[Rfam]
Shown here is a 133-nucleotide sequence, a member of the family "LAGLIDADG-2 RNA".
RNA sequence: AUAUAGGCCUCACUUAGAGGCCUUGCUAUGACCUGGGGAGGUUAGGCAUCCAUUUGGGUAGCGGUAGCUCCGCCCCUCUGGAGAGACGGCAACCAGAGACCGGGUUGUCAGAUCCCGGUCGGGGGACCGUCUU
Numbered sequence: 001a002u003a004u005a006g007g008c009c010u011c012a013c014u015u016a017g018a019g020g021c022c023u024u025g026c027u028a029u030g031a032c033c034u035g036g037g038g039a040g041g042u043u044a045g046g047c048a049u050c051c052a053u054u055u056g057g058g059u060a061g062c063g064g065u066a067g068c069u070c071c072g073c074c075c076c077u078c079u080g081g082a083g084a085g086a087c088g089g090c091a092a093c094c095a096g097a098g099a100c101c102g103g104g105u106u107g108u109c110a111g112a113u114c115c116c117g118g119u120c121g122g123g124g125g126a127c128c129g130u131c132u133u
Stems, first nucleotide, its partner, number of pairs: 005023007029044006049082004056076003061073004083133007098120007

Rfam classes the family as a small RNA.